The record is a 108-nucleotide RNA from Chlorobium limicola, which matches "SAM riboswitch aptamer (S box leader)" in Rfam.
Gene Ontology term of the family: regulation of gene expression.
The family's consensus secondary structure is taken from published work.
It is one of the family's seed sequences.
RNA sequence: CUAUCAUCGAGAAAGGUGGAGGGACUGGCCCUGAGAAGCCUUGGCAACCGUCACGCACAGUGAUUGGUGCCAAUUCCAUCCCGGACUGCGAGCCGGGAGAGAUGAUGG
Numbered sequence: 001c002u003a004u005c006a007u008c009g010a011g012a013a014a015g016g017u018g019g020a021g022g023g024a025c026u027g028g029c030c031c032u033g034a035g036a037a038g039c040c041u042u043g044g045c046a047a048c049c050g051u052c053a054c055g056c057a058c059a060g061u062g063a064u065u066g067g068u069g070c071c072a073a074u075u076c077c078a079u080c081c082c083g084g085a086c087u088g089c090g091a092g093c094c095g096g097g098a099g100a101g102a103u104g105a106u107g108g
Stems, first nucleotide, its partner, number of pairs: 001108008013042005021031003026078003043071004048067002050064004075100001080097005